[Rfam]
RNA sequence: UGAGGCGUGGCGGGAGAGUCCCACCCCCAUCCAGUGGGCGGGCGCCGCAGGAGCAAAUCCUCCCCGGGAAUCUCUCAGGCAAUCGAUACCGCCGCGACUAG
Numbered sequence: 001u002g003a004g005g006c007g008u009g010g011c012g013g014g015a016g017a018g019u020c021c022c023a024c025c026c027c028c029a030u031c032c033a034g035u036g037g038g039c040g041g042g043c044g045c046c047g048c049a050g051g052a053g054c055a056a057a058u059c060c061u062c063c064c065c066g067g068g069a070a071u072c073u074c075u076c077a078g079g080c081a082a083u084c085g086a087u088a089c090c091g092c093c094g095c096g097a098c099u100a101g
Base pairs, nucleotide, nucleotide: 006096007095008094009093010092011091012090013089020042021041022040044080045079046078047076051074052073053072058066
Record summary
A member of the RNA family "Glycine riboswitch aptamer" from Mycobacterium dioxanotrophicus, 101 nucleotides long. NCBI's taxonomy places the organism under Bacteria, Bacillati, Actinomycetes, Mycobacteriales, Mycobacterium.